[Rfam]
The family of this 100-nucleotide sequence from Darwinula stevensoni is "Vault RNA". Rfam 15.1 lists 2,873 matches to the family in 431 species. For this family Rfam cites "Evolution of Vault RNAs" (Stadler et al., Mol Biol Evol, 2009). The match comes from Rfam's covariance-model search (43 bits). By type it is a non-coding RNA gene.
RNA sequence: GGGUCGGCCCAGCCGACUGGGUACUUCGAAUCCAUUUGCUUUCACCCAUUUCGUAAGAAACAAUAAUAUGACAGUCCCAGCGGCGCAGUCCAACCCUUUU
Numbered sequence: 001g002g003g004u005c006g007g008c009c010c011a012g013c014c015g016a017c018u019g020g021g022u023a024c025u026u027c028g029a030a031u032c033c034a035u036u037u038g039c040u041u042u043c044a045c046c047c048a049u050u051u052c053g054u055a056a057g058a059a060a061c062a063a064u065a066a067u068a069u070g071a072c073a074g075u076c077c078c079a080g081c082g083g084c085g086c087a088g089u090c091c092a093a094c095c096c097u098u099u100u
Stems, first nucleotide, its partner, number of pairs: 002095003006091002012084004017080004025059003